This 232-nucleotide RNA sequence from Cylicocyclus nassatus belongs to the Rfam family "Nuclear RNase P". Rfam links the family to the GO terms ribonuclease P complex, tRNA processing and ribonuclease P activity. The base pairs follow the family's consensus structure, which is taken from published work. For this family Rfam cites "Ribonuclease P: unity and diversity in a tRNA processing ribozyme" (Frank and Pace, Annu Rev Biochem, 1998). The family's RNA type in Rfam is ribozyme. The family has 116 seed sequences and 3,848 matches in Rfam 15.1. NCBI's taxonomy places the organism under Eukaryota, Nematoda, Rhabditida, Rhabditina, Cylicocyclus. Its Rfam clan is "RNaseP clan".
[Rfam]
RNA sequence: UUCUGGAAGAAGGCGCGGGGGGUGACCCACAGGUCCUUAGUGACCUUCGUUCCCCCGGGAAGGUCUGAGAUAAGGUCACUGGUUUCGGACAGGGGGUUUGAGAAGGACCUCGUUUGUGAGAACGGGAGGCUGUAACAGAAAAAGUCCCCCGCGGGGUUUGAAAACAGUCUCGACCAGCAGAAUCUGAGUGCGAUCGCCAAUAUUAACACAAUUCAGACUAGUCUUCGGAGAA
Numbered sequence: 001u002u003c004u005g006g007a008a009g010a011a012g013g014c015g016c017g018g019g020g021g022g023u024g025a026c027c028c029a030c031a032g033g034u035c036c037u038u039a040g041u042g043a044c045c046u047u048c049g050u051u052c053c054c055c056c057g058g059g060a061a062g063g064u065c066u067g068a069g070a071u072a073a074g075g076u077c078a079c080u081g082g083u084u085u086c087g088g089a090c091a092g093g094g095g096g097u098u099u100g101a102g103a104a105g106g107a108c109c110u111c112g113u114u115u116g117u118g119a120g121a122a123c124g125g126g127a128g129g130c131u132g133u134a135a136c137a138g139a140a141a142a143a144g145u146c147c148c149c150c151g152c153g154g155g156g157u158u159u160g161a162a163a164a165c166a167g168u169c170u171c172g173a174c175c176a177g178c179a180g181a182a183u184c185u186g187a188g189u190g191c192g193a194u195c196g197c198c199a200a201u202a203u204u205a206a207c208a209c210a211a212u213u214c215a216g217a218c219u220a221g222u223c224u225u226c227g228g229a230g231a232a
Base pairs, nucleotide, nucleotide: 001232002231003230004229005226006225007224010201013198018056019055020054021053022052031046032045033044034043035042065216066215067214068213069212074175075174076173077172095109096108097107098106099105110125111124112123113122114121115120126171127170128169129168130167131166132165146156147155148154